[Rfam]
RNA: Glycine riboswitch aptamer
RNA sequence: CGAACCGCGACGGGAGAGCCCUCCUGCCGGAGGCGCCGAAGGAGCAACCCUCCCCGGGAAACUCUCAGGCCCCUGUACCGCCGUGGUGAG
Numbered sequence: 001c002g003a004a005c006c007g008c009g010a011c012g013g014g015a016g017a018g019c020c021c022u023c024c025u026g027c028c029g030g031a032g033g034c035g036c037c038g039a040a041g042g043a044g045c046a047a048c049c050c051u052c053c054c055c056g057g058g059a060a061a062c063u064c065u066c067a068g069g070c071c072c073c074u075g076u077a078c079c080g081c082c083g084u085g086g087u088g089a090g
Stems, first nucleotide, its partner, number of pairs: 006085004011080003020033004035070003038066002042064003048057002